Shown here is a 49-nucleotide RNA sequence from Sedimentitalea arenosa, a member of the family "Guanidine-II riboswitch aptamer (mini-ykkC)".
Pairs were carried over by alignment from the consensus structure, which is taken from published work.
A reference for the family is Huang et al. (2017), "The Structure of the Guanidine-II Riboswitch", Cell Chem Biol.
The match comes from Rfam's covariance-model search (33 bits).

[Rfam]
RNA sequence: GCGAGGACGACCUCGCCGGACCCAUCGGUCAACAGGCGGGACGGCCCGA
Numbered sequence: 001g002c003g004a005g006g007a008c009g010a011c012c013u014c015g016c017c018g019g020a021c022c023c024a025u026c027g028g029u030c031a032a033c034a035g036g037c038g039g040g041a042c043g044g045c046c047c048g049a
Stems, first nucleotide, its partner, number of pairs: 001016006037048004